A member of the RNA family "Cardiovirus cis-acting replication element (CRE)" from Cardiovirus theileri, 33 nucleotides long.

RNA sequence: UCGGCCACAAACACACAGUCUACUGUUGGCCGG
Number, nucleotide and partner (000 for none) at each position: 001u033002c032003g031004g030005c029006c028007a027008c000009a000010a000011a026012c025013a024014c000015a000016c000017a000018g000019u000020c000021u000022a000023c000024u013025g012026u011027u007028g006029g005030c004031c003032g002033g001
Record summary:
The family's RNA type in Rfam is cis-regulatory element. On this family, see Lobert et al., Proc Natl Acad Sci U S A 1999: "A coding RNA sequence acts as a replication signal in cardioviruses". From the family's description: This family represents a Cardiovirus cis-acting replication element (CRE) which is located within the region encoding the capsid protein VP2 and is required for viral replication.